[Rfam]
RNA sequence: AUUAUUUGAGGGCGGAACAGCCAGCCGCCGCACCCUUGUGGUCUGUAAAGAGAUGCAGAUUGGCACCUGCCAAAUAAU
Dot-bracket structure: ((((((((..(((((....[[[[.))))).((((.....))).......)....((((..]]]]..))))))))))))